[Rfam]
RNA: c-di-AMP riboswitch aptamer (ydaO/yuaA leader)
RNA sequence: UUCCAUUCAACGCUUAAUCCCCGAGAGGGGAGCGGGGGAACCAAUCGAAGCUGCCAAUUGGCUUCAUGGGGUGAAUCCUAUUACUUGCAUAGCAAGUAAGGGACGGGCGCUCUCAAGUCCGAAUCCGACAGCUAACCUCGUAAGCGUAUUGAGAGAGAACCG
Number, nucleotide and partner (000 for none) at each position: 001u000002u000003c000004c000005a000006u000007u000008c000009a000010a000011c146012g145013c144014u143015u000016a000017a000018u031019c030020c029021c000022c000023g000024a000025g000026a000027g000028g000029g020030g019031a018032g141033c140034g139035g138036g137037g136038g000039a000040a000041c000042c068043a067044a000045u000046c000047g000048a000049a000050g000051c000052u000053g000054c000055c000056a000057a000058u000059u000060g000061g000062c000063u000064u000065c000066a000067u043068g042069g126070g125071g124072u000073g000074a000075a000076u000077c102078c101079u100080a000081u000082u000083a000084c000085u000086u000087g000088c000089a000090u000091a000092g000093c000094a000095a000096g000097u000098a000099a000100g079101g078102g077103a000104c000105g120106g119107g118108c117109g000110c000111u000112c000113u000114c000115a000116a000117g108118u107119c106120c105121g000122a000123a000124u071125c070126c069127g000128a000129c000130a000131g000132c000133u000134a000135a000136c037137c036138u035139c034140g033141u032142a000143a014144g013145c012146g011147u000148a000149u000150u000151g000152a000153g000154a000155g000156a000157g000158a000159a000160c000161c000162g000